[Rfam]
RNA sequence: GGGGAUCUUCGGAGCCCUGUACCGGACCCAACGUGGUCCUUUAGCUGACGGAAGACAGGAA
Numbered sequence: 001g002g003g004g005a006u007c008u009u010c011g012g013a014g015c016c017c018u019g020u021a022c023c024g025g026a027c028c029c030a031a032c033g034u035g036g037u038c039c040u041u042u043a044g045c046u047g048a049c050g051g052a053a054g055a056c057a058g059g060a061a
Stems, first nucleotide, its partner, number of pairs: 001018004006014001008012001024039005
Shown here is a 61-nucleotide sequence from Cereibacter ovatus, a member of the family "L2-Alphaproteobacteria ribosomal protein leader".
The family's consensus secondary structure is taken from published work.
A reference for the family is Eckert and Weinberg (2020), "Discovery of 20 novel ribosomal leader candidates in bacteria and archaea", BMC Microbiol.
It scores 40 bits against the family's covariance model.